[Rfam]
RNA: RAGATH-18 RNA
Organism: Finegoldia magna
RNA sequence: ACUGUGGAGUGUACAAGAACUUGUUAGUAGCAAAAUCUUUGCAAAAGCAUACACAAUGAAGCAGUAA
Numbered sequence: 001a002c003u004g005u006g007g008a009g010u011g012u013a014c015a016a017g018a019a020c021u022u023g024u025u026a027g028u029a030g031c032a033a034a035a036u037c038u039u040u041g042c043a044a045a046a047g048c049a050u051a052c053a054c055a056a057u058g059a060a061g062c063a064g065u066a067a
Stems, first nucleotide, its partner, number of pairs: 001065005009054005022049003030042003